[Rfam]
RNA sequence: ACAGCUGGGUUUAUGUAAGCCCCUUAAAGUAGUAAUAUUUUAAAGCAAAUAGGGGGAAUUGCAAGGACAAGUUUAUUUGAUAAACUUAAUUUGCAGCGAAGUGCACUCCAGCAUAAUAUUAUUAAUAAUAUUUAGAAGUGUGAACGUUCAACGACUAGGAAGUGAGUAAUGCUAACAAUAAUCUUCCCACGAGCACCCUACAACCAAAAUAAGAUACUUUGGUUGAUGACAUAGUCUAAGCCCAAUGGUGACAUUGGG
Numbered sequence: 001a002c003a004g005c006u007g008g009g010u011u012u013a014u015g016u017a018a019g020c021c022c023c024u025u026a027a028a029g030u031a032g033u034a035a036u037a038u039u040u041u042a043a044a045g046c047a048a049a050u051a052g053g054g055g056g057a058a059u060u061g062c063a064a065g066g067a068c069a070a071g072u073u074u075a076u077u078u079g080a081u082a083a084a085c086u087u088a089a090u091u092u093g094c095a096g097c098g099a100a101g102u103g104c105a106c107u108c109c110a111g112c113a114u115a116a117u118a119u120u121a122u123u124a125a126u127a128a129u130a131u132u133u134a135g136a137a138g139u140g141u142g143a144a145c146g147u148u149c150a151a152c153g154a155c156u157a158g159g160a161a162g163u164g165a166g167u168a169a170u171g172c173u174a175a176c177a178a179u180a181a182u183c184u185u186c187c188c189a190c191g192a193g194c195a196c197c198c199u200a201c202a203a204c205c206a207a208a209a210u211a212a213g214a215u216a217c218u219u220u221g222g223u224u225g226a227u228g229a230c231a232u233a234g235u236c237u238a239a240g241c242c243c244a245a246u247g248g249u250g251a252c253a254u255u256g257g258g
Stems, first nucleotide, its partner, number of pairs: 007023003011019002028039003050200004056194001060095006070086005096147002107135001110132002151237001153236005203223006210216002243256005
Dot-bracket structure: ......(((.((.....)).)))....(((......)))..........[[[[..[...((((((....(((((.......)))))...))))))((.........(..((...................))..)..........))...(.(((((....................................]..]]]]..((((((.((...)).))))))........)))))).....(((((....)))))..
Shown here is a 258-nucleotide RNA sequence from Mortierella sp. AM989, a member of the family "Group I catalytic intron".
The source organism's lineage runs through Eukaryota, Fungi, Mortierellomycota, Mortierellomycetes and Mortierella.